[Rfam]
The family of this 75-nucleotide sequence from Physeter macrocephalus is "Small nucleolar RNA SNORD113/SNORD114 family". The family has 59 seed sequences and 5,721 matches in Rfam 15.1. It scores 64 bits against the family's covariance model. The imprinted human domain at 14q32 contains two clusters of tandemly repeated small nucleolar RNAs named 14q(I) and 14q(II) snoRNAs. These two clusters are named SNORD113 and SNORD114 respectively in the HGNC approved gene symbol nomenclature. The snoRNAs found in both clusters are clearly related and are represented here by a single family. These snoRNAs are intron encoded and are processed from the tissue-specific non-coding human MEG8 RNA, which lies downstream of the imprinted genes DLK1 and GTL2. snoRNAs 14q(I) and 14q(II) differ from previously identified C/D box snoRNAs in their expression profiles and lack of complementarity to rRNA and snRNA. Homologues of these snoRNAs are found in the imprinted non-coding mouse transcript Rian, and in the rat non-coding Bsr (brain-specific repetitive) RNA. The family's RNA type in Rfam is C/D-box small nucleolar RNA. For this family Rfam cites "Identification of tandemly-repeated C/D snoRNA genes at the imprinted human 14q32 domain reminiscent of those at the Prader-Willi/Angelman syndrome region" (Cavaille et al., Hum Mol Genet, 2002). The base pairs follow the family's consensus structure, which is taken from published work.

RNA sequence: UGAACCAAUGAUGAGGAUUGGUAGAGGUUGAGGCACAGACGAUGAAUAAUAAGUAUCUGGAACCCUGAGGUCCAA
Dot-bracket structure: .(.(((..............................................................))).)..